[Rfam]
RNA: Group II catalytic intron D1-D4-5
Organism: Blautia argi
Nucleotides: 198
Base pairs, nucleotide, nucleotide: 019052020051021050022049023048031043032042033041034040053190054189055188056187063108064107065106066105067100068099069098070097071096072095073094074093077090078089079088080087115186116185117184118183119182124176125175126174127173128172129148130147131146135144136143152171153170154169156167157166158165159164
Number, partner (000 for none) and nucleotide at each position: 001000g002000a003000g004000a005000a006000c007000u008000a009000a010000a011000c012000a013000c014000a015000c016000g017000a018000a019052u020051a021050g022049u023048c024000g025000a026000a027000u028000g029000a030000c031043g032042g033041g034040g035000u036000a037000a038000c039000g040034c041033c042032c043031u044000g045000a046000a047000a048023g049022g050021c051020u052019a053190c054189u055188u056187u057000a058000a059000u060000a061000c062000u063108c064107c065106g066105a067100c068099u069098g070097g071096c072095a073094g074093a075000a076000a077090c078089u079088u080087g081000a082000g083000u084000a085000a086000a087080c088079a089078a090077g091000g092000c093074u094073c095072u096071g097070u098069c099068a100067g101000a102000a103000g104000c105066u106065c107064g108063g109000u110000g111000a112000a113000g114000u115186c116185g117184g118183c119182a120000g121000a122000c123000a124176g125175a126174c127173a128172c129148c130147g131146u132000a133000a134000c135144a136143g137000a138000u139000a140000a141000u142000g143136c144135u145000g146131a147130c148129g149000a150000a151000a152171g153170a154169u155000u156167c157166c158165c159164a160000g161000a162000g163000g164159u165158g166157g167156g168000c169154g170153u171152u172128g173127u174126g175125u176124c177000c178000u179000a180000u181000a182119u183118g184117c185116c186115g187056g188055a189054a190053g191000u192000c193000u194000a195000u196000a197000a198000a